[Rfam]
RNA sequence: UUGGGAGUGUCCGAGAGACCUCCCAAUCUCUUUCCGUAUAUUUAGUUCUAGAAAGAGAUUAAUACCACGAUUUAAUUAUUCGAAUUAGAGUAGAAUAAAAUUAUCUUGAAUUAACAAGGUACUCAAGAGCCUUGAGCCAGAGUGGAAAAUUCUGAGCCACUGAUCA
Numbered sequence: 001u002u003g004g005g006a007g008u009g010u011c012c013g014a015g016a017g018a019c020c021u022c023c024c025a026a027u028c029u030c031u032u033u034c035c036g037u038a039u040a041u042u043u044a045g046u047u048c049u050a051g052a053a054a055g056a057g058a059u060u061a062a063u064a065c066c067a068c069g070a071u072u073u074a075a076u077u078a079u080u081c082g083a084a085u086u087a088g089a090g091u092a093g094a095a096u097a098a099a100a101u102u103a104u105c106u107u108g109a110a111u112u113a114a115c116a117a118g119g120u121a122c123u124c125a126a127g128a129g130c131c132u133u134g135a136g137c138c139a140g141a142g143u144g145g146a147a148a149a150u151u152c153u154g155a156g157c158c159a160c161u162g163a164u165c166a
Stems, first nucleotide, its partner, number of pairs: 001026007012017001027058008036049001038047001079095003102121007136157002138154003142150002
This 166-nucleotide RNA belongs to the Rfam family "RAGATH-22 RNA". By type it is a small RNA.